A member of the RNA family "Ribosomal S15 leader" from Lonepinella koalarum, 120 nucleotides long. Gene Ontology term of the family: regulation of translation, ncRNA-mediated. It scores 106 bits against the family's covariance model. Its Rfam clan is "Ribosomal Protein S15 Leader clan". The base pairs follow the family's consensus structure, which is taken from published work. From the family's description: The E. coli Ribosomal S15 gene 5' UTR can form two alternative structures.
RNA sequence: UGUCAUCGCUGAAUUAGAGAUCGGCGAAUGAUGUAUGAUUAACAUUCUCUUUGGGAGUAAAAAAUGUCUCUAAGUGUAGAAAAAAAAGCGGAAAUCGUGGCUGAAUUCGGUCGUGAUGCG
Number, nucleotide and partner (000 for none) at each position: 001u000002g000003u000004c000005a000006u000007c026008g025009c024010u023011g022012a021013a000014u000015u000016a000017g000018a000019g000020a000021u012022c011023g010024g009025c008026g007027a000028a000029u000030g000031a000032u000033g000034u000035a000036u000037g000038a000039u000040u000041a000042a000043c000044a000045u000046u000047c000048u000049c000050u074051u073052u072053g000054g071055g070056a069057g068058u000059a000060a000061a000062a000063a000064a000065u000066g000067u000068c057069u056070c055071u054072a052073a051074g050075u000076g000077u000078a000079g000080a000081a000082a000083a000084a000085a000086a000087a000088g000089c000090g000091g000092a000093a000094a000095u000096c000097g000098u000099g000100g000101c000102u000103g000104a000105a000106u000107u000108c000109g000110g000111u000112c000113g000114u000115g000116a000117u000118g000119c000120g000